The family of this 71-nucleotide RNA sequence from Alligator mississippiensis is "Mammalian CPEB3 ribozyme". It scores 48 bits against the family's covariance model.

[Rfam]
RNA sequence: UCAGACUAUGGGGGCCAUAGCAAGAGUUUUUACAUUGUGACCCCUGUCAGGUAAUACCUGCAAAUUCUGCU
Numbered sequence: 001u002c003a004g005a006c007u008a009u010g011g012g013g014g015c016c017a018u019a020g021c022a023a024g025a026g027u028u029u030u031u032a033c034a035u036u037g038u039g040a041c042c043c044c045u046g047u048c049a050g051g052u053a054a055u056a057c058c059u060g061c062a063a064a065u066u067c068u069g070c071u
Stems, first nucleotide, its partner, number of pairs: 011044004016039001019071004024066002026038002048060005
Record summary: Taxonomically the source falls in Alligator (Eukaryota, Vertebrata, Sauropsida, Alligatorinae).